U4 spliceosomal RNA: a 149-nucleotide sequence from Erinaceus europaeus. Taxonomically the source falls in Erinaceus (Eukaryota, Bilateria, Deuterostomia, Theria).

RNA sequence: AGCUUUGCACGGUGGCAGUAUUGUAGCCAAUGAGAUCUAUUCGAGGCGUGAUUAUUGCUAAUUGAAAACUUCUCCCAACCCCCCCCACCCGCCACCAUGACAUCUUAAAAUAUAGUCACACUGGCAAUUUUUGACAGUCUCUAUGGAGA
Numbered sequence: 001a002g003c004u005u006u007g008c009a010c011g012g013u014g015g016c017a018g019u020a021u022u023g024u025a026g027c028c029a030a031u032g033a034g035a036u037c038u039a040u041u042c043g044a045g046g047c048g049u050g051a052u053u054a055u056u057g058c059u060a061a062u063u064g065a066a067a068a069c070u071u072c073u074c075c076c077a078a079c080c081c082c083c084c085c086c087a088c089c090c091g092c093c094a095c096c097a098u099g100a101c102a103u104c105u106u107a108a109a110a111u112a113u114a115g116u117c118a119c120a121c122u123g124g125c126a127a128u129u130u131u132u133g134a135c136a137g138u139c140u141c142u143a144u145g146g147a148g149a
Base pairs, nucleotide, nucleotide: 020052021051022050023049024048026047027046028045034042035041091125092124093123094122098118099117100116101115138149139148140147141146